RNA sequence: ACACGGGAAAGGAGGUGGUCCAACGUUGAAUACGUAUCGGACUCGUGAGGUGGCUGUCCGCUAGGACGCCAACGUUUCGUUCGACUGCCCUUUCGGGUGUCGAACUCCCUUUCGCGGAAUCGCGUUGAGCGUUCGGCGAAUACCAGGCAGUUACCCGGCCCUCGGGGUCCCGUGUGUGGUCCAACACGGGCCCGCCUGCCGUGCGGAGUAGGCGGGAGCACCCCGGGGGCCGUCUGCU
Numbered sequence: 001a002c003a004c005g006g007g008a009a010a011g012g013a014g015g016u017g018g019u020c021c022a023a024c025g026u027u028g029a030a031u032a033c034g035u036a037u038c039g040g041a042c043u044c045g046u047g048a049g050g051u052g053g054c055u056g057u058c059c060g061c062u063a064g065g066a067c068g069c070c071a072a073c074g075u076u077u078c079g080u081u082c083g084a085c086u087g088c089c090c091u092u093u094c095g096g097g098u099g100u101c102g103a104a105c106u107c108c109c110u111u112u113c114g115c116g117g118a119a120u121c122g123c124g125u126u127g128a129g130c131g132u133u134c135g136g137c138g139a140a141u142a143c144c145a146g147g148c149a150g151u152u153a154c155c156c157g158g159c160c161c162u163c164g165g166g167g168u169c170c171c172g173u174g175u176g177u178g179g180u181c182c183a184a185c186a187c188g189g190g191c192c193c194g195c196c197u198g199c200c201g202u203g204c205g206g207a208g209u210a211g212g213c214g215g216g217a218g219c220a221c222c223c224c225g226g227g228g229g230c231c232g233u234c235u236g237c238u
Stems, first nucleotide, its partner, number of pairs: 014058006059138004064133001066132004071126005156232013170189006
Background:
The family of this 238-nucleotide RNA sequence from Tamaricihabitans halophyticus is "Actinobacteria sRNA Ms_IGR-5". It scores 100 bits against the family's covariance model.